[Rfam]
Nucleotides: 073
Base pairs, nucleotide, nucleotide: 001072002071003070004069005068006067007066010025011024012023013022027043028042029041030040031039049065050064051063052062053061
Number, partner (000 for none) and nucleotide at each position: 001072g002071g003070g004069g005068a006067c007066g008000u009000a010025g011024c012023u013022c014000a015000a016000u017000u018000g019000g020000u021000a022013g023012a024011g025010c026000g027043u028042a029041u030040g031039u032000u033000u034000u035000g036000c037000a038000a039031g040030c041029a042028u043027a044000a045000a046000g047000c048000u049065g050064u051063c052062g053061g054000u055000u056000c057000a058000a059000a060000u061053c062052c063051g064050a065049u066007c067006g068005u069004c070003u071002c072001c073000a

The record is a 73-nucleotide sequence, which matches "tRNA" in Rfam. The family's RNA type in Rfam is transfer RNA.